RNA sequence: UUCUUAUCAAGAGAGGUGGAGGGAAAGGGCCCUGUGAAACCCGGCAACCUAUUUAGGAGUGAAGAAUGGAGAAUUAAAAAUGAAAAAUUAUAGUAAUUUUACAUUUUAAAUUUUGUACUUUACAUUUUUAGGUGUGGUGCCAAUUCCUGCAAGAAAUUUUGCAAGAUAAGAA
Numbered sequence: 001u002u003c004u005u006a007u008c009a010a011g012a013g014a015g016g017u018g019g020a021g022g023g024a025a026a027g028g029g030c031c032c033u034g035u036g037a038a039a040c041c042c043g044g045c046a047a048c049c050u051a052u053u054u055a056g057g058a059g060u061g062a063a064g065a066a067u068g069g070a071g072a073a074u075u076a077a078a079a080a081u082g083a084a085a086a087a088u089u090a091u092a093g094u095a096a097u098u099u100u101a102c103a104u105u106u107u108a109a110a111u112u113u114u115g116u117a118c119u120u121u122a123c124a125u126u127u128u129u130a131g132g133u134g135u136g137g138u139g140c141c142a143a144u145u146c147c148u149g150c151a152a153g154a155a156a157u158u159u160u161g162c163a164a165g166a167u168a169a170g171a172a
Base pairs, nucleotide, nucleotide: 001172002171003170004169005168006167007166008165013042015041016040017039021032022031023030027148028147029146043141044140045139046138048137049136052131145164150161151160152159153158